Shown here is a 62-nucleotide sequence from Erwinia sorbitola, a member of the family "Pseudomonas sRNA P26". For this family Rfam cites "Identification of 17 Pseudomonas aeruginosa sRNAs and prediction of sRNA-encoding genes in 10 diverse pathogens using the bioinformatic tool sRNAPredict2" (Livny et al., Nucleic Acids Res, 2006). The family's RNA type in Rfam is non-coding RNA gene. The match comes from Rfam's covariance-model search (67 bits). Rfam describes the family as follows. This small RNA (sRNA) was computationally identified in the genome of the opportunistic pathogen Pseudomonas aeruginosa and its expression verified by northern blot analysis. P26 is conserved across many Gammaproteobacteria species and appears to be consistently located between the DNA directed RNA polymerase (beta subunit) and 50S ribosomal protein L7/L12 genes.

RNA sequence: ACCUUUCAGGUUGCAGCCUAGUCUUUUAGGCUGAUGGCUGGUGACUAUUUGGUCACCAGCCU
Dot-bracket structure: .............(((((..........)))))..((((((((((......)))))))))).
Numbered sequence: 001a002c003c004u005u006u007c008a009g010g011u012u013g014c015a016g017c018c019u020a021g022u023c024u025u026u027u028a029g030g031c032u033g034a035u036g037g038c039u040g041g042u043g044a045c046u047a048u049u050u051g052g053u054c055a056c057c058a059g060c061c062u
Stems, first nucleotide, its partner, number of pairs: 014033005036061010